[Rfam]
RNA sequence: CCGAAAGCGGGAGGCUACGACGCACGGUCCACACUCCGGCCGCCGGGACCGCGCCGAGCCACUGGCGAGACCGACCCGCGUACGU
Number, nucleotide and partner (000 for none) at each position: 001c000002c084003g083004a000005a081006a000007g079008c078009g077010g076011g075012a000013g060014g059015c058016u000017a000018c000019g000020a000021c000022g054023c053024a000025c051026g050027g049028u048029c047030c000031a000032c000033a000034c000035u000036c000037c000038g072039g071040c000041c067042g066043c065044c064045g000046g000047g029048a028049c027050c026051g025052c000053g023054c022055c000056g000057a000058g015059c014060c013061a000062c000063u000064g044065g043066c042067g041068a000069g000070a000071c039072c038073g000074a000075c011076c010077c009078g008079c007080g000081u005082a000083c003084g002085u000
RNA: c-di-GMP-II-GAG riboswitch aptamer